[Rfam]
RNA: mir-9229 microRNA precursor family
RNA sequence: GAGACACCCUUAUGGGGCAGGACUUGCUUCUGUGGGACUUCGGUGCUCACUGAGUCUGCCCCUUGAGUGUGUUGUU
Number, nucleotide and partner (000 for none) at each position: 001g075002a000003g073004a072005c071006a070007c069008c000009c067010u066011u065012a064013u000014g062015g061016g060017g059018c058019a057020g000021g056022a055023c054024u000025u000026g000027c000028u000029u053030c052031u000032g050033u049034g048035g047036g046037a044038c043039u000040u000041c000042g000043g038044u037045g000046c036047u035048c034049a033050c032051u000052g030053a029054g023055u022056c021057u019058g018059c017060c016061c015062c014063u000064u012065g011066a010067g009068u000069g007070u006071g005072u004073u003074g000075u001076u000